[Rfam]
RNA: Bacteriophage Diversity-Generating Retroelement RNA
Nucleotides: 131
Base pairs, nucleotide, nucleotide: 004026005025006024007023008022009021012019013018062069063068084131087129088128089127093123094122095121102114103113
Number, partner (000 for none) and nucleotide at each position: 001000a002000a003000c004026c005025c006024c007023g008022g009021a010000c011000g012019c013018c014000c015000a016000c017000g018013g019012g020000c021009u022008c023007c024006g025005g026004g027000a028000c029000g030000c031000a032000u033000c034000a035000c036000c037000a038000a039000a040000c041000g042000g043000u044000g045000g046000u047000c048000a049000g050000c051000c052000c053000g054000a055000a056000a057000g058000u059000c060000u061000c062069g063068c064000u065000u066000c067000g068063g069062c070000a071000a072000a073000c074000a075000c076000a077000c078000g079000a080000c081000a082000c083000g084131g085000u086000a087129g088128g089127g090000g091000a092000g093123c094122g095121g096000c097000g098000a099000g100000u101000a102114g103113g104000c105000c106000g107000c108000a109000a110000g111000g112000c113103u114102c115000g116000a117000a118000a119000c120000c121095c122094c123093g124000u125000c126000a127089c128088c129087c130000c131084c